RNA sequence: AACUUUGCGCAGCGGCAGUGUCAUAGUAGCCAAUGAGGGUUCUUACCGAGGCGUGACUAUUAUUAAGUUAGUUGGAAAACUUUUCCACACCUGCCCUGUCGACGUGAAAUACCGUCGGCCGAGGCAAUUUUUGGAAACCCUAAAGGG
Number, nucleotide and partner (000 for none) at each position: 001a000002a000003c000004u000005u000006u000007g000008c000009g000010c000011a000012g000013c000014g000015g000016c000017a000018g000019u000020g057021u056022c055023a054024u053025a000026g000027u000028a000029g052030c051031c050032a000033a000034u000035g000036a000037g047038g046039g000040u000041u000042c000043u000044u000045a000046c038047c037048g000049a000050g031051g030052c029053g024054u023055g022056a021057c020058u000059a000060u000061u000062a000063u000064u000065a000066a000067g000068u000069u000070a000071g000072u000073u000074g000075g000076a000077a000078a000079a000080c000081u000082u000083u000084u000085c000086c000087a000088c000089a000090c000091c000092u000093g125094c124095c123096c121097u000098g119099u118100c117101g116102a115103c114104g113105u000106g000107a000108a000109a000110u000111a000112c000113c104114g103115u102116c101117g100118g099119c098120c000121g096122a000123g095124g094125c093126a000127a000128u000129u000130u000131u000132u000133g000134g000135a000136a000137a000138c147139c146140c145141u000142a000143a000144a000145g140146g139147g138

Shown here is a 147-nucleotide sequence from Trichonephila inaurata, a member of the family "U4 spliceosomal RNA". From the family's description: U4 small nuclear RNA (U4 snRNA) is a component of the major U2-dependent spliceosome. The match comes from Rfam's covariance-model search (73 bits). The family's consensus secondary structure is taken from published work.